[Rfam]
RNA: Bacterial RNase P class A
RNA sequence: CGAGUCGGCUGGGCGGUCGCGUCGGCGCCUUCACGGGCGCCGCCGAGGAACGUCCGGACUCCGCAGAGCAGGGUGGUUGUUAACGGCAACCCGGGGUGACCCGCGGGACAGUGCCACAGAAAACAGACCGCCGGCCGUGCCUCGGCACGCGCCGGUAAGGGUGAAACGGUGGGGUAAGAGCCCACCAGCACCCCGGGUGACCGGGGUGGCUUGGUAAACCCCACCCGGAGCAAGGCCAAGCAAGGCCACGGCCGCGAGGCGGUGGCCGGCGCAGGCGUUCGAGGGCUGCUCGCCCGAGCCUGCGGGUAGGCCGCAAGAGCCUGUCGGCGACGGCAGGCCGAGAUGGAUGACCGCCGCCGGCGACCGGAAGGUCGCCGGACACAGAAUCCGGCGUACAGGCCGACUCGUCCG
Numbered sequence: 001c002g003a004g005u006c007g008g009c010u011g012g013g014c015g016g017u018c019g020c021g022u023c024g025g026c027g028c029c030u031u032c033a034c035g036g037g038c039g040c041c042g043c044c045g046a047g048g049a050a051c052g053u054c055c056g057g058a059c060u061c062c063g064c065a066g067a068g069c070a071g072g073g074u075g076g077u078u079g080u081u082a083a084c085g086g087c088a089a090c091c092c093g094g095g096g097u098g099a100c101c102c103g104c105g106g107g108a109c110a111g112u113g114c115c116a117c118a119g120a121a122a123a124c125a126g127a128c129c130g131c132c133g134g135c136c137g138u139g140c141c142u143c144g145g146c147a148c149g150c151g152c153c154g155g156u157a158a159g160g161g162u163g164a165a166a167c168g169g170u171g172g173g174g175u176a177a178g179a180g181c182c183c184a185c186c187a188g189c190a191c192c193c194c195g196g197g198u199g200a201c202c203g204g205g206g207u208g209g210c211u212u213g214g215u216a217a218a219c220c221c222c223a224c225c226c227g228g229a230g231c232a233a234g235g236c237c238a239a240g241c242a243a244g245g246c247c248a249c250g251g252c253c254g255c256g257a258g259g260c261g262g263u264g265g266c267c268g269g270c271g272c273a274g275g276c277g278u279u280c281g282a283g284g285g286c287u288g289c290u291c292g293c294c295c296g297a298g299c300c301u302g303c304g305g306g307u308a309g310g311c312c313g314c315a316a317g318a319g320c321c322u323g324u325c326g327g328c329g330a331c332g333g334c335a336g337g338c339c340g341a342g343a344u345g346g347a348u349g350a351c352c353g354c355c356g357c358c359g360g361c362g363a364c365c366g367g368a369a370g371g372u373c374g375c376c377g378g379a380c381a382c383a384g385a386a387u388c389c390g391g392c393g394u395a396c397a398g399g400c401c402g403a404c405u406c407g408u409c410c411g
Stems, first nucleotide, its partner, number of pairs: 001407010011396001012355007020045002023042006050394003054391005059230004066291004071226005076090005091105001092103004106221002111219002113215003128160002130156006168186006188210001189208008234312004271303006283295004319338008